[Rfam]
RNA sequence: UCACUCACAAAGUGGUUGUCAUAUGUGUUCAGUGUUCAUAUCACAGCCAGCUUUGAUGAGCGAUA
Numbered sequence: 001u002c003a004c005u006c007a008c009a010a011a012g013u014g015g016u017u018g019u020c021a022u023a024u025g026u027g028u029u030c031a032g033u034g035u036u037c038a039u040a041u042c043a044c045a046g047c048c049a050g051c052u053u054u055g056a057u058g059a060g061c062g063a064u065a
Stems, first nucleotide, its partner, number of pairs: 005059003008055005013049007021041001024040003
A member of the RNA family "mir-2 microRNA precursor family" from Galleria mellonella, 65 nucleotides long. For this family Rfam cites "microRNAs: tiny regulators with great potential" (Ambros, Cell, 2001). The organism belongs to Galleria, within Eukaryota. Its family is annotated with RISC complex and miRNA-mediated post-transcriptional gene silencing in the Gene Ontology.